[Rfam]
RNA sequence: AAAAUCCAACACAAACAAAGUCUAGCCAACAGUUUGGAACAGACCACUAUGUUGCAUGAGGUAACGAGUGUAAUAGAGCUAGUGGGAUGGACAAUGCAGGGCACAACGGAAGUGAAGGAGUGGAGUCCCGAAAUACCUGAAGACAUAGAGGACGACAUGUUCAUGGCCAUGGAAGACAGCAUGAAGGAUAACGUAAAGGCAAGUUAUCACUCACUAGACCUCUUUCGAAAC
Numbered sequence: 001a002a003a004a005u006c007c008a009a010c011a012c013a014a015a016c017a018a019a020g021u022c023u024a025g026c027c028a029a030c031a032g033u034u035u036g037g038a039a040c041a042g043a044c045c046a047c048u049a050u051g052u053u054g055c056a057u058g059a060g061g062u063a064a065c066g067a068g069u070g071u072a073a074u075a076g077a078g079c080u081a082g083u084g085g086g087a088u089g090g091a092c093a094a095u096g097c098a099g100g101g102c103a104c105a106a107c108g109g110a111a112g113u114g115a116a117g118g119a120g121u122g123g124a125g126u127c128c129c130g131a132a133a134u135a136c137c138u139g140a141a142g143a144c145a146u147a148g149a150g151g152a153c154g155a156c157a158u159g160u161u162c163a164u165g166g167c168c169a170u171g172g173a174a175g176a177c178a179g180c181a182u183g184a185a186g187g188a189u190a191a192c193g194u195a196a197a198g199g200c201a202a203g204u205u206a207u208c209a210c211u212c213a214c215u216a217g218a219c220c221u222c223u224u225u226c227g228a229a230a231c
Stems, first nucleotide, its partner, number of pairs: 012036005020030002023202001025200002040089002044085004050075008060065001125231002129227002145225001147223003150214001151177001153175001156171004182213003187208006

Rfam assigns this 231-nucleotide RNA sequence from Trichonephila clavata to the family "Group II catalytic intron D1-D4-6". The pairing is the family consensus, mapped onto this sequence. Rfam describes the family as follows. Group II introns are found in rRNA, tRNA and mRNA of organelles in fungi, plants and protists, and also in mRNA in bacteria. Its family is annotated with Group II intron splicing in the Gene Ontology.